The family of this 169-nucleotide part of an RNA from Badhamia polycephala is "Eukaryotic small subunit ribosomal RNA".
RNA sequence: CCGCCCGUCGCUGCUACCGAUUGGGUUUUACAGUUACGCGUUCGGAGGACGAUGUUUUCGGGUCUUAACGGGCUCCGGGGCGUCGGCCAAAGUUCUAACUACUGUACGGCCUAGAGGAAGCAGAAGUCGUAACAAGGUAAUCGUAGGUGAACCUGCGUUUGGAUCAUUA
Numbered sequence: 001c002c003g004c005c006c007g008u009c010g011c012u013g014c015u016a017c018c019g020a021u022u023g024g025g026u027u028u029u030a031c032a033g034u035u036a037c038g039c040g041u042u043c044g045g046a047g048g049a050c051g052a053u054g055u056u057u058u059c060g061g062g063u064c065u066u067a068a069c070g071g072g073c074u075c076c077g078g079g080g081c082g083u084c085g086g087c088c089a090a091a092g093u094u095c096u097a098a099c100u101a102c103u104g105u106a107c108g109g110c111c112u113a114g115a116g117g118a119a120g121c122a123g124a125a126g127u128c129g130u131a132a133c134a135a136g137g138u139a140a141u142c143g144u145a146g147g148u149g150a151a152c153c154u155g156c157g158u159u160u161g162g163a164u165c166a167u168u169a
Stems, first nucleotide, its partner, number of pairs: 001136001003133001006129002009126001011123005017117002021113001023112005029106006040095001043092001047088002050085008060075005138161003142157006